Annotation: This 206-nucleotide RNA sequence from Jaculus jaculus belongs to the Rfam family "Small nucleolar RNA SNORA73 family". It scores 161 bits against the family's covariance model. On this family, see Cervelli et al., J Mol Evol 2002: "Comparative Structure Analysis of Vertebrate U17 Small Nucleolar RNA (snoRNA)". Rfam describes the family as follows. U17 (SNORA73A and SNORA73B) also known as E1 belongs to the H/ACA class of small nucleolar RNAs (snoRNAs). Vertebrate U17 is intron-encoded and ranges in length from 200-230 nucleotides, longer than most snoRNAs. It is one of the most abundant snoRNAs in human cells and is essential for the cleavage of pre-rRNA within the 5' external transcribed spacer (ETS). This cleavage leads to the formation of 18S rRNA. Regions of the U17 RNA are complementary to rRNA and act as guides for RNA/RNA interactions, although these regions do not seem to be well conserved between organisms. Gene Ontology terms of the family: nucleolus and RNA processing.
[Rfam]
RNA sequence: CCAACGUGGAUAUUCAGGGAGGUCACUCCCCUUGGGUUCUAUCCACGUGGCAUAGGGGAGCGCUGGACUCUGCCCCGUGAUGUACAGUCCCCUUUCCACAAUGUUGGAGAUAAAGCUGGGCUUUUGUGUCUGUGCCUACGUAUUUCUAUGACUUCUCAGAAUCCUGUGGAUGAUGACCAAGGAGACAAACUAUGCAGGAAAUACAG
Numbered sequence: 001c002c003a004a005c006g007u008g009g010a011u012a013u014u015c016a017g018g019g020a021g022g023u024c025a026c027u028c029c030c031c032u033u034g035g036g037u038u039c040u041a042u043c044c045a046c047g048u049g050g051c052a053u054a055g056g057g058g059a060g061c062g063c064u065g066g067a068c069u070c071u072g073c074c075c076c077g078u079g080a081u082g083u084a085c086a087g088u089c090c091c092c093u094u095u096c097c098a099c100a101a102u103g104u105u106g107g108a109g110a111u112a113a114a115g116c117u118g119g120g121c122u123u124u125u126g127u128g129u130c131u132g133u134g135c136c137u138a139c140g141u142a143u144u145u146c147u148a149u150g151a152c153u154u155c156u157c158a159g160a161a162u163c164c165u166g167u168g169g170a171u172g173a174u175g176a177c178c179a180a181g182g183a184g185a186c187a188a189a190c191u192a193u194g195c196a197g198g199a200a201a202u203a204c205a206g
Base pairs, nucleotide, nucleotide: 001107002106003105004104005103006102007101008044009043010042011041012040014036015035018029019028020027021026047099048098049097050096056091057090058089059088060085062083063082065078135198136197137196139194140193141192152184153183154182155181156180161171162170163169164168